Rfam assigns this 101-nucleotide sequence from Virgibacillus salexigens to the family "Purine riboswitch aptamer".
RNA sequence: AUCGAACAAAAUAUAGAUCCUCAUAUAAAACUGAGAAUACGGCUCAGAAGUUUCUACCCAGCACCGUAAAUGACUGGACUAUGAGGGAAGUAGAAUCGUUG
Numbered sequence: 001a002u003c004g005a006a007c008a009a010a011a012u013a014u015a016g017a018u019c020c021u022c023a024u025a026u027a028a029a030a031c032u033g034a035g036a037a038u039a040c041g042g043c044u045c046a047g048a049a050g051u052u053u054c055u056a057c058c059c060a061g062c063a064c065c066g067u068a069a070a071u072g073a074c075u076g077g078a079c080u081a082u083g084a085g086g087g088a089a090g091u092a093g094a095a096u097c098g099u100u101g
Base pairs, nucleotide, nucleotide: 018087019086020085021084022083023082024081025080031047032046033045034044035043058077059076060075061074062072063071
Dot-bracket structure: .................((((((((.....(((((.......)))))..........((((((.......)).))))..))))))))..............

The match comes from Rfam's covariance-model search (78 bits).